[Rfam]
RNA sequence: CUCUUAUUGAGAGAGGCGGAGGGACUGGCCCUGUGAAGCCCGGCAACCAUUUAACAUUCUUGUUGAAAAGGUGCUACAUCCUGCAAAGCGUACAGCUUUGAAAAAUAAGAG
Numbered sequence: 001c002u003c004u005u006a007u008u009g010a011g012a013g014a015g016g017c018g019g020a021g022g023g024a025c026u027g028g029c030c031c032u033g034u035g036a037a038g039c040c041c042g043g044c045a046a047c048c049a050u051u052u053a054a055c056a057u058u059c060u061u062g063u064u065g066a067a068a069a070g071g072u073g074c075u076a077c078a079u080c081c082u083g084c085a086a087a088g089c090g091u092a093c094a095g096c097u098u099u100g101a102a103a104a105a106u107a108a109g110a111g
Base pairs, nucleotide, nucleotide: 001111002110003109004108005107006106007105008104013041015040016039017038021031022030023029025083027081028080042075043074044073045072047071048070050067051066052065053064079103084100085099086098087097088096089095
Dot-bracket structure: ((((((((....(.(((...(((.[.[[)))......))))((((.((.((((..........))))..))))))...(]].]((((((.....))))))..)))))))))